[Rfam]
RNA: Vault RNA
RNA sequence: GUGCAGGUUUAGUCUAAAGGUUCCUUCGUUCUAUUAUGAUAUUAUUGCUCUCUGAGUGUGAGUUCAAACCAGACCUUGGACGCAGUCCUGCACUUUU
Numbered sequence: 001g002u003g004c005a006g007g008u009u010u011a012g013u014c015u016a017a018a019g020g021u022u023c024c025u026u027c028g029u030u031c032u033a034u035u036a037u038g039a040u041a042u043u044a045u046u047g048c049u050c051u052c053u054g055a056g057u058g059u060g061a062g063u064u065c066a067a068a069c070c071a072g073a074c075c076u077u078g079g080a081c082g083c084a085g086u087c088c089u090g091c092a093c094u095u096u097u
Base pairs, nucleotide, nucleotide: 002092003091004090005089006088007087012081013080014079015078017077018076019075020074025068026067028065
Dot-bracket structure: .((((((....((((.((((....((.(....................................).)).....)))))))).....)))))).....